TPP riboswitch aptamer (THI element): a 113-nucleotide sequence from Deinococcus soli. The match comes from Rfam's covariance-model search (73 bits). A reference for the family is Rodionov et al. (2002), "Comparative genomics of thiamin biosynthesis in procaryotes. New genes and regulatory mechanisms", J Biol Chem. NCBI's taxonomy places the organism under Bacteria, Deinococcota, Deinococci, Deinococcales, Deinococcus.
RNA sequence: CACAGUCACCAGGGGUGCCGACCGUCAACAGCGUCGGCUGAGAGAACACCGUGUUCAACCCUAGGAACCUGAUCUGGUUCAUACCAGCGGAGGGAGCGUGACGGGUGCCGAAA
Numbered sequence: 001c002a003c004a005g006u007c008a009c010c011a012g013g014g015g016u017g018c019c020g021a022c023c024g025u026c027a028a029c030a031g032c033g034u035c036g037g038c039u040g041a042g043a044g045a046a047c048a049c050c051g052u053g054u055u056c057a058a059c060c061c062u063a064g065g066a067a068c069c070u071g072a073u074c075u076g077g078u079u080c081a082u083a084c085c086a087g088c089g090g091a092g093g094g095a096g097c098g099u100g101a102c103g104g105g106u107g108c109c110g111a112a113a
Stems, first nucleotide, its partner, number of pairs: 006101004011062004017038005045055004068093003074087004
The family's consensus secondary structure is taken from published work.